This 112-nucleotide RNA from Spinacia oleracea belongs to the Rfam family "Small nucleolar RNA snoR99".
On this family, see Marker et al., Curr Biol 2002: "Experimental RNomics: identification of 140 candidates for small non-messenger RNAs in the plant Arabidopsis thaliana".
The match comes from Rfam's covariance-model search (64 bits).
The base pairs follow the family's consensus structure, which was predicted with WAR.
Its family is annotated with RNA processing and nucleolus in the Gene Ontology.
By type it is an H/ACA-box small nucleolar RNA.
The family has 9 seed sequences and 733 matches in Rfam 15.1.
NCBI's taxonomy places the organism under Eukaryota, Streptophytina, Tracheophyta, Caryophyllales, Spinacia.
RNA sequence: UUGCUGUAGGGAUGGAACGAAAUCCUUAAAUUGAAAAUAAAAAGUCAUCCGUCACUUUGUCAGCAGAUUCUUUUUAUUCAUUUUUUUGCUGAUCAUACAAGAUGACAUAUUC
Numbered sequence: 001u002u003g004c005u006g007u008a009g010g011g012a013u014g015g016a017a018c019g020a021a022a023u024c025c026u027u028a029a030a031u032u033g034a035a036a037a038u039a040a041a042a043a044g045u046c047a048u049c050c051g052u053c054a055c056u057u058u059g060u061c062a063g064c065a066g067a068u069u070c071u072u073u074u075u076a077u078u079c080a081u082u083u084u085u086u087u088g089c090u091g092a093u094c095a096u097a098c099a100a101g102a103u104g105a106c107a108u109a110u111u112c
Stems, first nucleotide, its partner, number of pairs: 044106006059093008